[Rfam]
Nucleotides: 090
Stems, first nucleotide, its partner, number of pairs: 001090004
Number, partner (000 for none) and nucleotide at each position: 001090u002089g003088g004087c005000g006000a007000u008000g009000a010000u011000g012000a013000g014000g015000a016000a017000c018000a019000a020000a021000g022000u023000c024000a025000u026000g027000c028000a029000c030000c031000a032000c033000u034000c035000u036000g037000a038000u039000g040000u041000u042000c043000u044000u045000c046000a047000g048000u049000u050000g051000a052000u053000g054000a055000c056000a057000u058000u059000c060000g061000a062000c063000u064000u065000c066000u067000a068000c069000c070000c071000a072000u073000u074000u075000u076000u077000u078000u079000c080000u081000u082000u083000c084000u085000g086000a087004g088003c089002c090001a